[Rfam]
RNA: chrB-a RNA
RNA sequence: CCUAUGGGGCUUGCGAGCACCCCGUGAGGCAAAGGCCAGAGUUUCGCAUCCCAGCUUAACGCCAUAUCCGGGGUGCACAUAUG
Numbered sequence: 001c002c003u004a005u006g007g008g009g010c011u012u013g014c015g016a017g018c019a020c021c022c023c024g025u026g027a028g029g030c031a032a033a034g035g036c037c038a039g040a041g042u043u044u045c046g047c048a049u050c051c052c053a054g055c056u057u058a059a060c061g062c063c064a065u066a067u068c069c070g071g072g073g074u075g076c077a078c079a080u081a082u083g
Base pairs, nucleotide, nucleotide: 005024006023007022008021009020046076047075048074049073050072051071